Shown here is a 181-nucleotide sequence from Leptobrachium leishanense, a member of the family "Small nucleolar RNA SNORA23". Rfam 15.1 lists 1,092 matches to the family in 632 species. On this family, see Huttenhofer et al., EMBO J 2001: "RNomics: an experimental approach that identifies 201 candidates for novel, small, non-messenger RNAs in mouse". The members of this family belong to the H/ACA class of snoRNAs which are thought to guide the sites of modification of uridines to pseudouridines. This family includes human snoRNA ACA23 (SNORA23) and mouse snoMBI-1. ACA23 is predicted to guide the pseudouridylation of residue U3737 and U4331 of 28S rRNA. Rfam links the family to the GO terms nucleolus and RNA processing. Rfam classes the family as an H/ACA-box small nucleolar RNA.
RNA sequence: GCAGUGAUGUGUGCACGGUGUCAGUCCGUGUUUAGGGGGGCGUCCAGCUCGCGUCUUGCAUUCUGGAUGUUCCUCUCAUGCAAAGCCUGUGGCCGCAGAUAAACCUGAGAUCAUAGUACCGGUCUAGCGACGUCCGCCGGACGAUCCAAACGCUGGCCGGCCUCCGACCUCUCAGACACAG
Numbered sequence: 001g002c003a004g005u006g007a008u009g010u011g012u013g014c015a016c017g018g019u020g021u022c023a024g025u026c027c028g029u030g031u032u033u034a035g036g037g038g039g040g041c042g043u044c045c046a047g048c049u050c051g052c053g054u055c056u057u058g059c060a061u062u063c064u065g066g067a068u069g070u071u072c073c074u075c076u077c078a079u080g081c082a083a084a085g086c087c088u089g090u091g092g093c094c095g096c097a098g099a100u101a102a103a104c105c106u107g108a109g110a111u112c113a114u115a116g117u118a119c120c121g122g123u124c125u126a127g128c129g130a131c132g133u134c135c136g137c138c139g140g141a142c143g144a145u146c147c148a149a150a151c152g153c154u155g156g157c158c159g160g161c162c163u164c165c166g167a168c169c170u171c172u173c174a175g176a177c178a179c180a181g
Stems, first nucleotide, its partner, number of pairs: 013090003029082003033078001035076001036074006043067005051059002106174005119160006126154004131143004